[Rfam]
The family of this 290-nucleotide part of an RNA from Cyclospora cayetanensis is "Eukaryotic large subunit ribosomal RNA".
RNA sequence: GAGUCUAACAUACGUGCGAGUAUGCGGGUGGAAGCCCUGUAUGCGCAAUGAGAGUGAGAGUAGGGAGAGGUUCGUGUUUUUGCGUUCCUCGCACCUACGACCGACCACUUUCUGUUAGUAGGUUUGAGUUGUAGCACGUCUGUUAGGACCCGAAAGAUGGUGAACUAUGCCUGAGUAGGGUGAAGUCAGGCGAAAGCCUGAUGGAGGCUCGUAGCGAUACUGACGUGCAAAUCGUUCGUCAAACUUGGGUAUAGGGGCGAAAGACUAAUCGAACCGUCUAGUAGCUGGUU
Numbered sequence: 001g002a003g004u005c006u007a008a009c010a011u012a013c014g015u016g017c018g019a020g021u022a023u024g025c026g027g028g029u030g031g032a033a034g035c036c037c038u039g040u041a042u043g044c045g046c047a048a049u050g051a052g053a054g055u056g057a058g059a060g061u062a063g064g065g066a067g068a069g070g071u072u073c074g075u076g077u078u079u080u081u082g083c084g085u086u087c088c089u090c091g092c093a094c095c096u097a098c099g100a101c102c103g104a105c106c107a108c109u110u111u112c113u114g115u116u117a118g119u120a121g122g123u124u125u126g127a128g129u130u131g132u133a134g135c136a137c138g139u140c141u142g143u144u145a146g147g148a149c150c151c152g153a154a155a156g157a158u159g160g161u162g163a164a165c166u167a168u169g170c171c172u173g174a175g176u177a178g179g180g181u182g183a184a185g186u187c188a189g190g191c192g193a194a195a196g197c198c199u200g201a202u203g204g205a206g207g208c209u210c211g212u213a214g215c216g217a218u219a220c221u222g223a224c225g226u227g228c229a230a231a232u233c234g235u236u237c238g239u240c241a242a243a244c245u246u247g248g249g250u251a252u253a254g255g256g257g258c259g260a261a262a263g264a265c266u267a268a269u270c271g272a273a274c275c276g277u278c279u280a281g282u283a284g285c286u287g288g289u290u
Base pairs, nucleotide, nucleotide: 005146006145007144008143009142010141012139013138014137015136016135017134020044021043022042025039026038027037028036048055049054060098061097062096063095064094067090068089069088100129101128102126103125104124105122106121149288150287152285156278157277158276159275160274161273165254166253167252168251169250170249171248172247173246174245175244176242178210179209180208181207185202186201187200188199189198190197191196214239215238216237217236219235220234222233223232256266257265